[Rfam]
RNA: Small nucleolar RNA Z278
RNA sequence: GCCUCUGAUGAAGUUGCCCAAUGUUUGGAUGCUGCAUUCGGCUCCAAGUUCAUGCUUGUCAGGUAGAACCUACUUGGAGCUGUUGUACUCACAUGACAAGACUGGGUAAUCUUGAGGC
Numbered sequence: 001g002c003c004u005c006u007g008a009u010g011a012a013g014u015u016g017c018c019c020a021a022u023g024u025u026u027g028g029a030u031g032c033u034g035c036a037u038u039c040g041g042c043u044c045c046a047a048g049u050u051c052a053u054g055c056u057u058g059u060c061a062g063g064u065a066g067a068a069c070c071u072a073c074u075u076g077g078a079g080c081u082g083u084u085g086u087a088c089u090c091a092c093a094u095g096a097c098a099a100g101a102c103u104g105g106g107u108a109a110u111c112u113u114g115a116g117g118c
Stems, first nucleotide, its partner, number of pairs: 001118003051063001053061002